Rfam assigns this 62-nucleotide sequence from Mus spicilegus to the family "Gag/pol translational readthrough site".

[Rfam]
RNA sequence: UAAGGGAGACAGGGCUCGGACCCCCUCCAUGAGCCCAGGGUAACUCUGAAAGUUGAGGGGCA
Dot-bracket structure: .......[.[.[[[[[..[..((((((]..].]]]]..].].............))))))..
Overview:
It scores 70 bits against the family's covariance model. Its family is annotated with viral translational readthrough in the Gene Ontology. Rfam classes the family as a cis-regulatory element. NCBI's taxonomy places the organism under Eukaryota, Eumetazoa, Eutheria, Muroidea, Mus. Pairs were carried over by alignment from the consensus structure, which is taken from published work.